Source information:
Shown here is a 64-nucleotide sequence from Danio rerio, a member of the family "Selenocysteine insertion sequence 1". By type it is a cis-regulatory element. Its family is annotated with selenocysteine incorporation in the Gene Ontology. The family's consensus secondary structure is taken from published work. It scores 36 bits against the family's covariance model.
RNA sequence: AUGGCAUUUAUGAAGGUUUGUGCUGAAAGUAGCAACUACUAGCACACACCGGAUGUUCUGCGCU
Dot-bracket structure: (..((.........(((.((((((.....(((...)))..)))))).))).........))..)